[Rfam]
The family of this 95-nucleotide RNA from Cebus imitator is "Y RNA". It scores 49 bits against the family's covariance model. Lineage of the source: Eukaryota > Boreoeutheria > Cebidae > Cebinae > Cebus.
RNA sequence: GGCUAGUCUGAUGGUAGUGGCUUAUUAAAACUUAUUAACAUUAGUGUCACUAACAUUGGUAUACAACUCCCCACUGCUGAAUUUGAUUGGCUAAA
Numbered sequence: 001g002g003c004u005a006g007u008c009u010g011a012u013g014g015u016a017g018u019g020g021c022u023u024a025u026u027a028a029a030a031c032u033u034a035u036u037a038a039c040a041u042u043a044g045u046g047u048c049a050c051u052a053a054c055a056u057u058g059g060u061a062u063a064c065a066a067c068u069c070c071c072c073a074c075u076g077c078u079g080a081a082u083u084u085g086a087u088u089g090g091c092u093a094a095a
Stems, first nucleotide, its partner, number of pairs: 002091007010084002015079001016075005033061003037057002